[Rfam]
RNA sequence: CGAUGGGGUAGAGGCGCAAAUCAUCAUUAGUAAUCAAUGUGAGGAUGACAACAGUGAACUUUGAUAAAAGGGAGAUUUGCCGAAGCAAAUAGGUACGUCAAUAUUUAUUUGUUGGGGUUGCUCUUAAUAGGAGUAACACUGUCAUUAUGGAGGUAUAUUAACCAUAAUGGGGAGCUACAGUCGUG
Dot-bracket structure: .......((((....((((((..((.......(((((.((.................)).)))))......)).))))))...((((((((((((......))))))))))))((.((((((((.....)))))))).)).(((((((((...........)))))))))....)))).......

The family of this 185-nucleotide sequence from Cytobacillus kochii is "Lysine riboswitch aptamer".
A search with the family's covariance model found it, with a score of 113 bits.